[Rfam]
RNA sequence: AGGGCUUGGAGCCAAUAAAGACUAAGAAAGUUGACUCAAAAAUAAA
Numbered sequence: 001a002g003g004g005c006u007u008g009g010a011g012c013c014a015a016u017a018a019a020g021a022c023u024a025a026g027a028a029a030g031u032u033g034a035c036u037c038a039a040a041a042a043u044a045a046a
Stems, first nucleotide, its partner, number of pairs: 006040002009037003013033004
RNA: Plastid-rpl16 group II-D1 intron